[Rfam]
RNA sequence: UGCAAGUUCAAGGGUACAGCAGAAGCACUCAUGCAGCCUGUCAGAUUAUAACAAAUAUGUGAAUUCUGCU
Numbered sequence: 001u002g003c004a005a006g007u008u009c010a011a012g013g014g015u016a017c018a019g020c021a022g023a024a025g026c027a028c029u030c031a032u033g034c035a036g037c038c039u040g041u042c043a044g045a046u047u048a049u050a051a052c053a054a055a056u057a058u059g060u061g062a063a064u065u066c067u068g069c070u
Stems, first nucleotide, its partner, number of pairs: 013038001015035001018070007025034003042059002045056003

Shown here is a 70-nucleotide RNA sequence from Alligator mississippiensis, a member of the family "Mammalian CPEB3 ribozyme". The base pairs follow the family's consensus structure, which is taken from published work. A search with the family's covariance model found it, with a score of 36 bits. About the family: The mammalian CPEB3 ribozyme is a self cleaving RNA located in the second intron of the CPEB3 gene which belongs to a family of genes regulating messenger RNA polyadenylation. This ribozyme is highly conserved and found only in mammals. The CPEB3 ribozyme is structurally and biochemically related to the human hepatitis delta virus (HDV) ribozyme and the HDV ribozyme is proposed to have arisen from the human transcriptome. There is currently only one other known self cleaving ribozyme in mammals, the CoTC motif. NCBI's taxonomy places the organism under Eukaryota, Bilateria, Euteleostomi, Archelosauria, Alligator.